[Rfam]
RNA: MIR398 microRNA precursor family
RNA sequence: GUACAACCCACAGGAGUGGCACUGAGAACACAGGUGAUGGUGGUGAUAGUGCUGCCUGGAAAUAUCAAGACUUGUACCUGUGUUCUCAGGUCACCCCUUUGGGGAACUC
Numbered sequence: 001g002u003a004c005a006a007c008c009c010a011c012a013g014g015a016g017u018g019g020c021a022c023u024g025a026g027a028a029c030a031c032a033g034g035u036g037a038u039g040g041u042g043g044u045g046a047u048a049g050u051g052c053u054g055c056c057u058g059g060a061a062a063u064a065u066c067a068a069g070a071c072u073u074g075u076a077c078c079u080g081u082g083u084u085c086u087c088a089g090g091u092c093a094c095c096c097c098u099u100u101g102g103g104g105a106a107c108u109c
Stems, first nucleotide, its partner, number of pairs: 007103002012098003016094004024087010
Dot-bracket structure: ......((...(((.((((....((((((((((............................................))))))))))...)))).)))...))......